[Rfam]
RNA: mir-338 microRNA precursor family
Organism: Mus musculus
RNA sequence: UCCCCAACAAUAUCCUGGUGCUGAGUGGGUGCACAGUGACUCCAGCAUCAGUGAUUUUGUUGAAGA
Numbered sequence: 001u002c003c004c005c006a007a008c009a010a011u012a013u014c015c016u017g018g019u020g021c022u023g024a025g026u027g028g029g030u031g032c033a034c035a036g037u038g039a040c041u042c043c044a045g046c047a048u049c050a051g052u053g054a055u056u057u058u059g060u061u062g063a064a065g066a
Base pairs, nucleotide, nucleotide: 006061007060008059009058010057012055013054014053015051016050017049018048019047020046021045022044023043